[Rfam]
RNA sequence: CUACGCUAUUUAGGGGUCAUUGUAGAAGCGUGCUCGUCGCGACCCCUGCCAGCCCUUUUCAGGGCUGCAAUUCUACA
Numbered sequence: 001c002u003a004c005g006c007u008a009u010u011u012a013g014g015g016g017u018c019a020u021u022g023u024a025g026a027a028g029c030g031u032g033c034u035c036g037u038c039g040c041g042a043c044c045c046c047u048g049c050c051a052g053c054c055c056u057u058u059u060c061a062g063g064g065c066u067g068c069a070a071u072u073c074u075a076c077a
Base pairs, nucleotide, nucleotide: 013046014045015044016043017042018041021077022076023075024074025073026072027071028040029039030038050067051066052065053064054063055062056061

The family of this 77-nucleotide RNA from Parnassius apollo is "Mammalian CPEB3 ribozyme". Its family is annotated with RNA nuclease activity in the Gene Ontology. The organism belongs to Parnassius, within Eukaryota. The match comes from Rfam's covariance-model search (58 bits).